[Rfam]
RNA sequence: AGGUUUGAAAAAAACUGACCUAAGACAGUUGGGGAGCUAGACUCGUAAACAUCCAACCGAGGCACAAAACGUAACUAUUUUUUUGUGACGUAUUGUACUUUCGUGUCUAGGUUUAGGUACGGUUUUUUUGUGCCUAG
Number, nucleotide and partner (000 for none) at each position: 001a000002g000003g000004u000005u000006u000007g000008a000009a000010a000011a000012a000013a000014a000015c000016u000017g000018a000019c000020c000021u000022a000023a000024g000025a000026c000027a000028g057029u056030u055031g054032g053033g052034g044035a043036g042037c000038u000039a000040g000041a000042c036043u035044c034045g000046u000047a000048a000049a000050c000051a000052u033053c032054c031055a030056a029057c028058c000059g000060a000061g000062g000063c000064a000065c000066a000067a000068a000069a000070c000071g000072u000073a000074a000075c000076u000077a000078u000079u000080u000081u000082u000083u000084u000085g000086u000087g000088a000089c000090g000091u000092a000093u000094u000095g000096u000097a000098c000099u000100u000101u122102c121103g120104u119105g118106u117107c116108u115109a114110g000111g000112u000113u000114u109115a108116g107117g106118u105119a104120c103121g102122g101123u000124u000125u000126u000127u000128u000129u000130g000131u000132g000133c000134c000135u000136a000137g000